This 77-nucleotide RNA from Crocodylus porosus belongs to the Rfam family "Mammalian CPEB3 ribozyme". The literature on the family includes a 2004 paper in Nature by Teixeira et al., "Autocatalytic RNA cleavage in the human beta-globin pre-mRNA promotes transcription termination".

RNA sequence: AGGGCACAAGAUUGAGGCCAUAGCAGAAGCACUCAUGGCAUGGCCUGCCAGAUUCCAAUGAAUCCGUGAAUUCUGCU
Number, nucleotide and partner (000 for none) at each position: 001a000002g000003g000004g000005c000006a000007c000008a000009a000010g000011a000012u000013u000014g000015a000016g045017g044018c043019c042020a000021u000022a077023g076024c075025a074026g073027a072028a071029g041030c000031a000032c000033u000034c000035a000036u000037g000038g000039c000040a000041u029042g019043g018044c017045c016046u000047g000048c000049c066050a000051g064052a063053u062054u061055c060056c000057a000058a000059u000060g055061a054062a053063u052064c051065c000066g049067u000068g000069a000070a000071u028072u027073c026074u025075g024076c023077u022
Notes:
Rfam describes the family as follows. The mammalian CPEB3 ribozyme is a self cleaving RNA located in the second intron of the CPEB3 gene which belongs to a family of genes regulating messenger RNA polyadenylation. A search with the family's covariance model found it, with a score of 43 bits.